[Rfam]
RNA sequence: AGUUGUUCCCAUGUGCUUGAUCUAACCAUGUGAUAGCAGGUAUCUAGGUGAACAUGGUUGUGUCAAGCGCCAUGGAACGACC
Numbered sequence: 001a002g003u004u005g006u007u008c009c010c011a012u013g014u015g016c017u018u019g020a021u022c023u024a025a026c027c028a029u030g031u032g033a034u035a036g037c038a039g040g041u042a043u044c045u046a047g048g049u050g051a052a053c054a055u056g057g058u059u060g061u062g063u064c065a066a067g068c069g070c071c072a073u074g075g076a077a078c079g080a081c082c
Base pairs, nucleotide, nucleotide: 002081003080004079005078006077007076008075009074013070014069015068016067017066018065019064024059025058026057027056028055029054030053031052

A member of the RNA family "mir-218 microRNA precursor family" from Esox lucius, 82 nucleotides long. The base pairs follow the family's consensus structure, which was predicted with RNAalifold. The match comes from Rfam's covariance-model search (79 bits). The family has 74 seed sequences and 1,392 matches in Rfam 15.1. Lineage of the source: Eukaryota > Chordata > Gnathostomata > Esociformes > Esox.